[Rfam]
RNA sequence: ACGCAAUUCCGGGGUCGGUGAAAGUCCGAGCCGGCGGUGAUAGCCCGCGACCCGAACGAAGGCGAUGCCUUUGUUCGGUUGAACCAGUGAAAUUCUGGUGCCGACAGUAAAAGUCUGGAUGGGAGGAAAGGCGU
Numbered sequence: 001a002c003g004c005a006a007u008u009c010c011g012g013g014g015u016c017g018g019u020g021a022a023a024g025u026c027c028g029a030g031c032c033g034g035c036g037g038u039g040a041u042a043g044c045c046c047g048c049g050a051c052c053c054g055a056a057c058g059a060a061g062g063c064g065a066u067g068c069c070u071u072u073g074u075u076c077g078g079u080u081g082a083a084c085c086a087g088u089g090a091a092a093u094u095c096u097g098g099u100g101c102c103g104a105c106a107g108u109a110a111a112a113g114u115c116u117g118g119a120u121g122g123g124a125g126g127a128a129a130g131g132c133g134u
Stems, first nucleotide, its partner, number of pairs: 003132002007128004016028003030114002032103002034048004043101002052078005083099005105117003